[Rfam]
RNA sequence: CCUUGCACGAAUUCCAUGCAUUAGGCCUCUAGUGUAGUUAUAACAAUACUAGAGGCCCAGUGCACGAAUCCGUGCAUGGGU
Numbered sequence: 001c002c003u004u005g006c007a008c009g010a011a012u013u014c015c016a017u018g019c020a021u022u023a024g025g026c027c028u029c030u031a032g033u034g035u036a037g038u039u040a041u042a043a044c045a046a047u048a049c050u051a052g053a054g055g056c057c058c059a060g061u062g063c064a065c066g067a068a069u070c071c072g073u074g075c076a077u078g079g080g081u
Stems, first nucleotide, its partner, number of pairs: 001079002004076006011069001013068001015066001017064006024057012
Shown here is an 81-nucleotide sequence from Eptesicus fuscus, a member of the family "mir-9243 microRNA precursor family". The sequence is in the family's curated seed alignment. Rfam links the family to the GO terms miRNA-mediated post-transcriptional gene silencing and RISC complex.